[Rfam]
RNA sequence: GAUUAUAAAGGGCAAAAUUACUGAAAAGUGAUGACGCAAAGCUUAGGGGCUAAAGUUUUUCACUAUGCCAGCCAGCUACCAAC
Numbered sequence: 001g002a003u004u005a006u007a008a009a010g011g012g013c014a015a016a017a018u019u020a021c022u023g024a025a026a027a028g029u030g031a032u033g034a035c036g037c038a039a040a041g042c043u044u045a046g047g048g049g050c051u052a053a054a055g056u057u058u059u060u061c062a063c064u065a066u067g068c069c070a071g072c073c074a075g076c077u078a079c080c081a082a083c
Stems, first nucleotide, its partner, number of pairs: 012037002017032006040077004046073002048069003055063002

c-di-GMP-I riboswitch aptamer: an 83-nucleotide RNA from Salipaludibacillus neizhouensis. A search with the family's covariance model found it, with a score of 71 bits. NCBI's taxonomy places the organism under Bacteria, Bacillota, Bacilli, Bacillaceae, Salipaludibacillus.